This 85-nucleotide RNA sequence from Bacillus licheniformis belongs to the Rfam family "BsrC". The family's consensus secondary structure was predicted with CMfinder.
RNA sequence: GAUACAAGACAACGAAAGCCCUACCUCUCAUUCGUCCUUGCGGCUCCGAAGCCGCGCCAGUGUGAAUUGUGAAACAAAAAGUCUU
Numbered sequence: 001g002a003u004a005c006a007a008g009a010c011a012a013c014g015a016a017a018g019c020c021c022u023a024c025c026u027c028u029c030a031u032u033c034g035u036c037c038u039u040g041c042g043g044c045u046c047c048g049a050a051g052c053c054g055c056g057c058c059a060g061u062g063u064g065a066a067u068u069g070u071g072a073a074a075c076a077a078a079a080a081g082u083c084u085u
Base pairs, nucleotide, nucleotide: 032065033064034063037060038059039056040055041054042053043052044051045050
Rfam's curators write: The 301 nucleotide sequence from Kouji Nakamura has been trimmed to a highly conserved ~85 nucleotide long core to form this family. On this family, see Saito et al., Gene 2008: "Novel small RNA-encoding genes in the intergenic regions of Bacillus subtilis". It is annotated as a small RNA.